This 75-nucleotide sequence from Taxus chinensis belongs to the Rfam family "Plastid-ycf2 5UTR RNA". The organism belongs to Taxus, within Eukaryota. For this family Rfam cites "Retrograde signaling in plants: A critical review focusing on the GUN pathway and beyond" (Richter et al., Plant Commun, 2023). From the family's description: Plastid ycf2 is a non-coding RNA (ncRNA) recognised in plastids. It was found in the prime untranslated region (5UTR) of ycf2 genes, it presents a tRNA-like motif which suggests it can be involved in mRNA maturation, particularly involved in defining the precise 5' end of the transcript.
RNA sequence: AUGCAUCUAGUAAGAAUCGAAUCUGUGACUUGCCAAUUAUGAGUUGGGUGGUUUUACCCAUUCAGCCAUGGAUGC
Numbered sequence: 001a002u003g004c005a006u007c008u009a010g011u012a013a014g015a016a017u018c019g020a021a022u023c024u025g026u027g028a029c030u031u032g033c034c035a036a037u038u039a040u041g042a043g044u045u046g047g048g049u050g051g052u053u054u055u056a057c058c059c060a061u062u063c064a065g066c067c068a069u070g071g072a073u074g075c
Stems, first nucleotide, its partner, number of pairs: 003075006010026003014022001039069003043066008
Background:
By type it is a cis-regulatory element.